[Rfam]
RNA sequence: UCACAGUAGCAGCGAUAGUCGGGUGAGAACCUCGACGGCCUGAAGAGCAAGGGUUCCUCGGCACUGCCACUCAGCCGAGGGUCAGCCGGUCCUAAGAUGCACCGUAACUCGACUGCAUCAACGGGAAACUGGUUAAGAUUCCAGUGCCAUCGUGCAGUAAACGUCGACGCCGUGUGGAACGCUGAGCCGGGCUUUCGCCCGGUCAAAUCGUGGAAACUCGUGGAAGCCGUCACGGCACGAAGCGAGCGAAACGCGAGAUAGCGCAAGUCAGCCGUACAUAGGGCCCGUGAAAAGACAAGCACGAUGUCCGUACCAAGAUCCGACACAGGUGCUCUGGCAGCGCAAGCCAAGGCCUGU
Dot-bracket structure: .................((((((.......))))))((((....((((..((...((((((...((.....)).))))))......(((.((...((((((.((.....))..))))))...))...(((((........)))))..((((((((.......(((...(((.((((....((((.(((((........)))))....((((.....(((((....(((.....))).....)))))......)))).....(....).))))....)))).))).........)))..)))))))).)))..)).....((......)).))))((((.......)))).))))...
RNA: Archaeal large subunit ribosomal RNA, nucleotides 1365 to 1721
Organism: Halorubrum lacusprofundi